[Rfam]
RNA sequence: ACCUCAGUGAUUUCAGCCAAUUACUUUGGCAAUAUACGCUAUGCUGACCUCAGUUUGAUGAGAAGUCAAAGAGUAUGAGAGUU
Numbered sequence: 001a002c003c004u005c006a007g008u009g010a011u012u013u014c015a016g017c018c019a020a021u022u023a024c025u026u027u028g029g030c031a032a033u034a035u036a037c038g039c040u041a042u043g044c045u046g047a048c049c050u051c052a053g054u055u056u057g058a059u060g061a062g063a064a065g066u067c068a069a070a071g072a073g074u075a076u077g078a079g080a081g082u083u
Base pairs, nucleotide, nucleotide: 001083003081004080005079
Dot-bracket structure: (.(((.........................................................................))).)